The record is a 297-nucleotide RNA sequence from Dinothrombium tinctorium, which matches "Metazoan signal recognition particle RNA" in Rfam. Its Rfam clan is "SRP clan". A reference for the family is Wild et al. (2002), "Towards the structure of the mammalian signal recognition particle", Curr Opin Struct Biol. Taxonomically the source falls in Dinothrombium (Eukaryota, Chelicerata, Acari, Trombidiformes). Rfam classes the family as a non-coding RNA gene.
[Rfam]
RNA sequence: GCCGGGAACAGUGGCGCGUUCCUGUAACUCCAGUGACCGGAGGGCUUAAGUAGGCGGAGGGCCGGCCGUCGGGGUAACUGUUGGCGUGUGUUGCAUGUCGAACGGGUGUCCGCACUAAGCUCUGCGUCAAUAUGGUCGCUGGUGGGGAGCCAUCGGUGACCAGGUUGAUUAAAGAGGAGCGUACGGCUCAGGACUGAGAAGUAGCAGGCAAAAGCUCCCGCGUGGAACAGUAGUGGGAUCGCACCUGUGAAUGCACACACGUCGAUAGCCCGAUCGUGUCUGUUCGACACUACUUUU
Numbered sequence: 001g002c003c004g005g006g007a008a009c010a011g012u013g014g015c016g017c018g019u020u021c022c023u024g025u026a027a028c029u030c031c032a033g034u035g036a037c038c039g040g041a042g043g044g045c046u047u048a049a050g051u052a053g054g055c056g057g058a059g060g061g062c063c064g065g066c067c068g069u070c071g072g073g074g075u076a077a078c079u080g081u082u083g084g085c086g087u088g089u090g091u092u093g094c095a096u097g098u099c100g101a102a103c104g105g106g107u108g109u110c111c112g113c114a115c116u117a118a119g120c121u122c123u124g125c126g127u128c129a130a131u132a133u134g135g136u137c138g139c140u141g142g143u144g145g146g147g148a149g150c151c152a153u154c155g156g157u158g159a160c161c162a163g164g165u166u167g168a169u170u171a172a173a174g175a176g177g178a179g180c181g182u183a184c185g186g187c188u189c190a191g192g193a194c195u196g197a198g199a200a201g202u203a204g205c206a207g208g209c210a211a212a213a214g215c216u217c218c219c220g221c222g223u224g225g226a227a228c229a230g231u232a233g234u235g236g237g238a239u240c241g242c243a244c245c246u247g248u249g250a251a252u253g254c255a256c257a258c259a260c261g262u263c264g265a266u267a268g269c270c271c272g273a274u275c276g277u278g279u280c281u282g283u284u285c286g287a288c289a290c291u292a293c294u295u296u297u
Stems, first nucleotide, its partner, number of pairs: 001045003004023006028042003048295006059285004064280001065277002068274006078268013092255005098249001102248008110237002113235005119228001121226007128167004133162013169173001176218005186209003193202003
Dot-bracket structure: (((((((((........))))))....(((.........))))))..((((((.....((((.(((.((((((....(((((((((((((.(((((.(...((((((((((.(((((.(.(((((((((((.(((((((((((((....))))))))))))).)))).(...)..(((((.....(((....(((....)))....)))....))))).))))))).)..)))))))...))))))))).)))))))))))))))))))))))).))..).))))....))))))..